The record is an 87-nucleotide RNA from Aegilops tauschii, which matches "MIR1120/MIR1122 microRNA precursor family" in Rfam. Rfam links the family to the GO terms RISC complex and miRNA-mediated post-transcriptional gene silencing. For this family Rfam cites "Cloning and characterization of microRNAs from wheat (Triticum aestivum L.)" (Yao et al., Genome Biol, 2007).

RNA sequence: CUACUCCCUCUAUCCCAUAAUAUAAGAGUGUUUUUUACACUACACUAGUGUAAAAAAUACUCUUAUAUUAUGGGAUGAAGGGAGUAU
Numbered sequence: 001c002u003a004c005u006c007c008c009u010c011u012a013u014c015c016c017a018u019a020a021u022a023u024a025a026g027a028g029u030g031u032u033u034u035u036u037a038c039a040c041u042a043c044a045c046u047a048g049u050g051u052a053a054a055a056a057a058u059a060c061u062c063u064u065a066u067a068u069u070a071u072g073g074g075a076u077g078a079a080g081g082g083a084g085u086a087u
Stems, first nucleotide, its partner, number of pairs: 003085003007081003011077001013075005019069023